[Rfam]
Notes:
The record is an 87-nucleotide RNA, which matches "GA-cis RNA" in Rfam. The family's RNA type in Rfam is small RNA.
RNA sequence: UUCAGGAGGAAACAAAAUGAACGAAGUUCAUUUUUUUUAAAUGUUUCCGUCAAUUAGCUACCGACUAAAGGGCGGGCAAUAUAUAUU
Numbered sequence: 001u002u003c004a005g006g007a008g009g010a011a012a013c014a015a016a017a018u019g020a021a022c023g024a025a026g027u028u029c030a031u032u033u034u035u036u037u038u039a040a041a042u043g044u045u046u047c048c049g050u051c052a053a054u055u056a057g058c059u060a061c062c063g064a065c066u067a068a069a070g071g072g073c074g075g076g077c078a079a080u081a082u083a084u085a086u087u
Stems, first nucleotide, its partner, number of pairs: 008048006016032006057077002061075002065071002